Shown here is a 75-nucleotide RNA from Streptomyces sp. NRRL WC-3618, a member of the family "ASpks TB sRNA". It scores 70 bits against the family's covariance model.
[Rfam]
RNA sequence: CUUCAACGAACCCAGCCACAACGGCUGUUCGCCGGAGUGCUCCUUGCCGUACGUGGCGAUGACGGCCUGGGCCUC
Number, nucleotide and partner (000 for none) at each position: 001c000002u000003u000004c000005a000006a000007c000008g000009a000010a000011c000012c000013c000014a026015g025016c024017c023018a000019c000020a000021a000022c000023g017024g016025c015026u014027g000028u000029u000030c000031g000032c070033c069034g000035g000036a000037g000038u065039g000040c000041u000042c000043c000044u059045u058046g000047c056048c055049g054050u000051a000052c000053g000054u049055g048056g047057c000058g045059a044060u000061g000062a000063c000064g000065g038066c000067c000068u000069g033070g032071g000072c000073c000074u000075c000
It is annotated as an antisense RNA. The source organism's lineage runs through Bacteria, Actinomycetota, Actinomycetes, Kitasatosporales and Streptomyces. The base pairs follow the family's consensus structure, which is taken from published work.